[Rfam]
RNA sequence: GGGUCGGCUUUAGCUCAAGCGGUUACUUCCUCAGUCUGGAUGUUCUAUCCACAUAAUCCCUGUGCUGGGGUUCGAGACCCGCGGGUGCUUUCUGACCCUUUU
Numbered sequence: 001g002g003g004u005c006g007g008c009u010u011u012a013g014c015u016c017a018a019g020c021g022g023u024u025a026c027u028u029c030c031u032c033a034g035u036c037u038g039g040a041u042g043u044u045c046u047a048u049c050c051a052c053a054u055a056a057u058c059c060c061u062g063u064g065c066u067g068g069g070g071u072u073c074g075a076g077a078c079c080c081g082c083g084g085g086u087g088c089u090u091u092c093u094g095a096c097c098c099u100u101u102u
Stems, first nucleotide, its partner, number of pairs: 002097006013086004019082004027076003
RNA: Vault RNA
Organism: Tupaia belangeri